About this RNA:
Rfam assigns this 74-nucleotide RNA sequence from Myotis lucifugus to the family "mir-9193 microRNA precursor family". Rfam 15.1 lists 6,008 matches to the family in 8 species. Its family is annotated with RISC complex and miRNA-mediated post-transcriptional gene silencing in the Gene Ontology. Taxonomically the source falls in Myotis (Eukaryota, Vertebrata, Sarcopterygii, Amniota).
[Rfam]
RNA sequence: AAUCAGAGAGGAGGGUCCCUCAGCCCAGAUUGUAAGAGGGUGCAGUCCUGGCUGAGGGACCCCACUGGUGCAUG
Numbered sequence: 001a002a003u004c005a006g007a008g009a010g011g012a013g014g015g016u017c018c019c020u021c022a023g024c025c026c027a028g029a030u031u032g033u034a035a036g037a038g039g040g041u042g043c044a045g046u047c048c049u050g051g052c053u054g055a056g057g058g059a060c061c062c063c064a065c066u067g068g069u070g071c072a073u074g
Stems, first nucleotide, its partner, number of pairs: 003072001006069001009066002013062013028047007